[Rfam]
RNA: mir-190 microRNA precursor family
RNA sequence: AUUCCAGUGAGAUAUGUUUGAUAUUCUUGGUUGUUAAAUUUUAUAUUAUCACCCAGGAAUCAAACAUAUUAUUACUGUGGU
Numbered sequence: 001a002u003u004c005c006a007g008u009g010a011g012a013u014a015u016g017u018u019u020g021a022u023a024u025u026c027u028u029g030g031u032u033g034u035u036a037a038a039u040u041u042u043a044u045a046u047u048a049u050c051a052c053c054c055a056g057g058a059a060u061c062a063a064a065c066a067u068a069u070u071a072u073u074a075c076u077g078u079g080g081u
Base pairs, nucleotide, nucleotide: 005077006076007075008074009073011070012069013068014067015066016065017064018063019062020061021060022059024057025056029054030053032051033050